The record is a 97-nucleotide RNA from Jatropha curcas, which matches "MIR403 microRNA precursor family" in Rfam. Gene Ontology terms of the family: RISC complex and miRNA-mediated post-transcriptional gene silencing. The family's consensus secondary structure was predicted with WAR. A reference for the family is Mica et al. (2009), "High throughput approaches reveal splicing of primary microRNA transcripts and tissue specific expression of mature microRNAs in Vitis vinifera", BMC Genomics. The match comes from Rfam's covariance-model search (80 bits).
[Rfam]
RNA sequence: GCAUAUUGCAGGUUUGUGCGUGAAUCUAAUAUAUAAAAUUCGCCAAUUUCUAUCUAUUGGAUCGUGUUAGAUUCACGCACAAACCCGUAAUCUGCCU
Numbered sequence: 001g002c003a004u005a006u007u008g009c010a011g012g013u014u015u016g017u018g019c020g021u022g023a024a025u026c027u028a029a030u031a032u033a034u035a036a037a038a039u040u041c042g043c044c045a046a047u048u049u050c051u052a053u054c055u056a057u058u059g060g061a062u063c064g065u066g067u068u069a070g071a072u073u074c075a076c077g078c079a080c081a082a083a084c085c086c087g088u089a090a091u092c093u094g095c096c097u
Stems, first nucleotide, its partner, number of pairs: 001095003005091003011085016028068003032064001042054001